HDV ribozyme from F. prausnitzii: a 76-nucleotide RNA from Portunus trituberculatus. A reference for the family is Webb et al. (2009), "Widespread occurrence of self-cleaving ribozymes", Science. Gene Ontology term of the family: catalytic activity. The family has 48 seed sequences and 3,803 matches in Rfam 15.1. A search with the family's covariance model found it, with a score of 45 bits. Pairs were carried over by alignment from the consensus structure, which is taken from published work.

[Rfam]
RNA sequence: CCUGCUCAAAAGCCUACUUCCACCUCUCCGUGGUGAGCAGGGGGUAAUAGGUAUUUACAUCUGGCUAACAGAAGAG
Numbered sequence: 001c002c003u004g005c006u007c008a009a010a011a012g013c014c015u016a017c018u019u020c021c022a023c024c025u026c027u028c029c030g031u032g033g034u035g036a037g038c039a040g041g042g043g044g045u046a047a048u049a050g051g052u053a054u055u056u057a058c059a060u061c062u063g064g065c066u067a068a069c070a071g072a073a074g075a076g
Stems, first nucleotide, its partner, number of pairs: 001041007022034003048063005